Overview:
Shown here is a 75-nucleotide sequence from Danaus chrysippus, a member of the family "mir-9/mir-79 microRNA precursor family". For this family Rfam cites "Identification of novel genes coding for small expressed RNAs" (Lagos-Quintana et al., Science, 2001).

RNA sequence: GGUUAUUUAUCUUUGGUUAUCUAGCUGUAUGAGUACAGUGACGUCAUAAAGCUAGGUUACCGGAGUUAAGGACCG
Numbered sequence: 001g002g003u004u005a006u007u008u009a010u011c012u013u014u015g016g017u018u019a020u021c022u023a024g025c026u027g028u029a030u031g032a033g034u035a036c037a038g039u040g041a042c043g044u045c046a047u048a049a050a051g052c053u054a055g056g057u058u059a060c061c062g063g064a065g066u067u068a069a070g071g072a073c074c075g
Stems, first nucleotide, its partner, number of pairs: 002074001004072001007069003011065007019057008028048005